Rfam assigns this 47-nucleotide RNA sequence to the family "Hepatitis C virus stem-loop I". The literature on the family includes a 2016 paper in Mol Cell by Pirakitikulr et al., "The Coding Region of the HCV Genome Contains a Network of Regulatory RNA Structures". The base pairs follow the family's consensus structure, which was predicted with RNAfold. Its family is annotated with viral RNA genome replication in the Gene Ontology. Rfam's curators put it in the seed alignment.
RNA sequence: CACUCGGGUGGCUGCAUGCCUCAGAAAGCUUGGGGUUCCGCCCUUGC
Numbered sequence: 001c002a003c004u005c006g007g008g009u010g011g012c013u014g015c016a017u018g019c020c021u022c023a024g025a026a027a028g029c030u031u032g033g034g035g036u037u038c039c040g041c042c043c044u045u046g047c
Stems, first nucleotide, its partner, number of pairs: 006043006018036007